[Rfam]
RNA sequence: ACAAAAUUUCCCGGAGAAUAGACUCCGGGAGAAUAGAAUCAAAAGAAAGAAAUUAAGAUUUGAGUAAUAGGAAUAAACGAACAUCUUUCAAG
Numbered sequence: 001a002c003a004a005a006a007u008u009u010c011c012c013g014g015a016g017a018a019u020a021g022a023c024u025c026c027g028g029g030a031g032a033a034u035a036g037a038a039u040c041a042a043a044a045g046a047a048a049g050a051a052a053u054u055a056a057g058a059u060u061u062g063a064g065u066a067a068u069a070g071g072a073a074u075a076a077a078c079g080a081a082c083a084u085c086u087u088u089c090a091a092g
Base pairs, nucleotide, nucleotide: 007031008030010029011028012027013026014025015024016023075088076087077086
RNA: Plastid-rpl20 3UTR RNA